[Rfam]
Nucleotides: 048
Stems, first nucleotide, its partner, number of pairs: 007041001010038008
Number, partner (000 for none) and nucleotide at each position: 001000a002000a003000g004000a005000g006000c007041c008000c009000c010038g011037a012036g013035u014034c015033a016032a017031u018000a019000a020000a021000g022000a023000c024000u025000g026000a027000g028000a029000g030000u031017a032016u033015u034014g035013a036012u037011u038010c039000a040000a041007g042000a043000a044000c045000a046000a047000a048000u
The family of this 48-nucleotide sequence is "Plastid-rpl16 group II-D1 intron". Rfam's curators write: Plastid-rpl16 is a non-coding RNA (ncRNA) recognised in plastids. It was recognised in and intronic region of a ribosome rpl16 gene. Gene Ontology term of the family: Group II intron splicing. It is one of the family's seed sequences.